[Rfam]
RNA: SAM (S-adenosyl methionine) riboswitch aptamer
RNA sequence: GUUCACGAGUUGCAGCGUCAAGUACCUGGCUAGCUGCACGGCAACCCUCCACCUGAGUGGGGUGCCCCAGGGGAAGAACGGGUCGACACCGUCCGGUGUGCGACAAGUCAGUUCA
Numbered sequence: 001g002u003u004c005a006c007g008a009g010u011u012g013c014a015g016c017g018u019c020a021a022g023u024a025c026c027u028g029g030c031u032a033g034c035u036g037c038a039c040g041g042c043a044a045c046c047c048u049c050c051a052c053c054u055g056a057g058u059g060g061g062g063u064g065c066c067c068c069a070g071g072g073g074a075a076g077a078a079c080g081g082g083u084c085g086a087c088a089c090c091g092u093c094c095g096g097u098g099u100g101c102g103a104c105a106a107g108u109c110a111g112u113u114c115a
Base pairs, nucleotide, nucleotide: 001079002078003077004076009039011038012037013036014035015034016033021031022030040066041065042064045062046061047060049057082104083103084102085101086099087098088097089096090095